This 89-nucleotide sequence from Sulfurifustis variabilis belongs to the Rfam family "c-di-GMP-I riboswitch aptamer". GEMM was predicted in a large-scale screen for bacterial structured RNA regulatory elements. The match comes from Rfam's covariance-model search (63 bits). Lineage of the source: Bacteria > Gammaproteobacteria > Acidiferrobacterales > Acidiferrobacteraceae > Sulfurifustis.
[Rfam]
RNA sequence: AACCGACAAAGGCUACCUCGCGCGAAAGCGCGGGGGCGCAAAGUCACCGGUCUACCGGGCCUCGGCCCCAGGACAGCGGGACUGCCGGA
Numbered sequence: 001a002a003c004c005g006a007c008a009a010a011g012g013c014u015a016c017c018u019c020g021c022g023c024g025a026a027a028g029c030g031c032g033g034g035g036g037c038g039c040a041a042a043g044u045c046a047c048c049g050g051u052c053u054a055c056c057g058g059g060c061c062u063c064g065g066c067c068c069c070a071g072g073a074c075a076g077c078g079g080g081a082c083u084g085c086c087g088g089a
Base pairs, nucleotide, nucleotide: 012039013038017034018033019032020031021030022029042083043082044081045080047079048078049077050074051073052072057068058067059066060065